[Rfam]
RNA sequence: GCCCCCUUGGCCUAAUGGACAAGGCGUCGGACUUCUAAUCCGCAGAUUGUGGGCUCGAGUCCCGCAAAGGUCA
Numbered sequence: 001g002c003c004c005c006c007u008u009g010g011c012c013u014a015a016u017g018g019a020c021a022a023g024g025c026g027u028c029g030g031a032c033u034u035c036u037a038a039u040c041c042g043c044a045g046a047u048u049g050u051g052g053g054c055u056c057g058a059g060u061c062c063c064g065c066a067a068a069g070g071u072c073a
Stems, first nucleotide, its partner, number of pairs: 001072001003070002007066001010025004028042004049065005
A member of the RNA family "tRNA" from Polarella glacialis, 73 nucleotides long. The base pairs follow the family's consensus structure, which is taken from published work. It is annotated as a transfer RNA.